[Rfam]
RNA sequence: CCCAUGACUAUGAUGAGAUGAAUGUUGGUAGGGACAUCUUAUUUACUGUGAUGAAUACCAACUUUUCUGACUGCAUGGG
Numbered sequence: 001c002c003c004a005u006g007a008c009u010a011u012g013a014u015g016a017g018a019u020g021a022a023u024g025u026u027g028g029u030a031g032g033g034a035c036a037u038c039u040u041a042u043u044u045a046c047u048g049u050g051a052u053g054a055a056u057a058c059c060a061a062c063u064u065u066u067c068u069g070a071c072u073g074c075a076u077g078g079g
Stems, first nucleotide, its partner, number of pairs: 001079005
RNA: Small nucleolar RNA SNORD74
Organism: Cyclopterus lumpus